This 170-nucleotide sequence from Marvinbryantia formatexigens belongs to the Rfam family "azaaromatic riboswitch aptamer (yjdF RNA)".
RNA sequence: AGGAACAGAGAUAAAAACACAACGUAAGGGAUAACAUUUCUUACAGAGCCGGUAGGUAGUCCGGCCGCACCGCUAUGGCUGUCAUGCAUCCGUAAGGAACUGCCAGUGACAACUGCUGCAGGUGUAAGUAACCCUCCCUCCUUGGGUCGUCCGUUCUUUGUUCAGUACAA
Numbered sequence: 001a002g003g004a005a006c007a008g009a010g011a012u013a014a015a016a017a018c019a020c021a022a023c024g025u026a027a028g029g030g031a032u033a034a035c036a037u038u039u040c041u042u043a044c045a046g047a048g049c050c051g052g053u054a055g056g057u058a059g060u061c062c063g064g065c066c067g068c069a070c071c072g073c074u075a076u077g078g079c080u081g082u083c084a085u086g087c088a089u090c091c092g093u094a095a096g097g098a099a100c101u102g103c104c105a106g107u108g109a110c111a112a113c114u115g116c117u118g119c120a121g122g123u124g125u126a127a128g129u130a131a132c133c134c135u136c137c138c139u140c141c142u143u144g145g146g147u148c149g150u151c152c153g154u155u156c157u158u159u160g161u162u163c164a165g166u167a168c169a170a
Base pairs, nucleotide, nucleotide: 004162005161006160007159008158009157010156011155048065049064050063051062052061067125068124069123070122071121136146137145138144

About this RNA
The organism belongs to Marvinbryantia formatexigens, within Bacteria. The base pairs follow the family's consensus structure, which is taken from published work.